The family of this 72-nucleotide RNA from Mangrovactinospora gilvigrisea is "Actino-pnp RNA".

[Rfam]
RNA sequence: GCCGGUCCUCGGUAGUGGCCACCGGAAGGCAGCGUUCCGCGCUCCUCCCGUGGGCUUCGAUCGAUGACCGGC
Numbered sequence: 001g002c003c004g005g006u007c008c009u010c011g012g013u014a015g016u017g018g019c020c021a022c023c024g025g026a027a028g029g030c031a032g033c034g035u036u037c038c039g040c041g042c043u044c045c046u047c048c049c050g051u052g053g054g055c056u057u058c059g060a061u062c063g064a065u066g067a068c069c070g071g072c
Stems, first nucleotide, its partner, number of pairs: 001072007009064005017056004023050003027046003
Rfam classes the family as a cis-regulatory element. The source organism's lineage runs through Bacteria, Actinomycetota, Actinomycetes, Kitasatosporales and Mangrovactinospora.